[Rfam]
Background: A member of the RNA family "TPP riboswitch aptamer (THI element)" from Cohnella sp. AR92, 112 nucleotides long. The base pairs follow the family's consensus structure, which is taken from published work.

RNA sequence: AUCGCGAUAUACGGGGGCUCGAUGAAGUCGGGCUGAGAUUGCGGCCGAAUGCCGCUGACCGUCGAAUCUGAUCUGGGUAAUGCCAGCGUAGAGACGUUUUUUUUGUCGCGCA
Numbered sequence: 001a002u003c004g005c006g007a008u009a010u011a012c013g014g015g016g017g018c019u020c021g022a023u024g025a026a027g028u029c030g031g032g033c034u035g036a037g038a039u040u041g042c043g044g045c046c047g048a049a050u051g052c053c054g055c056u057g058a059c060c061g062u063c064g065a066a067u068c069u070g071a072u073c074u075g076g077g078u079a080a081u082g083c084c085a086g087c088g089u090a091g092a093g094a095c096g097u098u099u100u101u102u103u104u105g106u107c108g109c110g111c112a
Stems, first nucleotide, its partner, number of pairs: 006100002009097002011062004016056001017033005041055004067092004073086004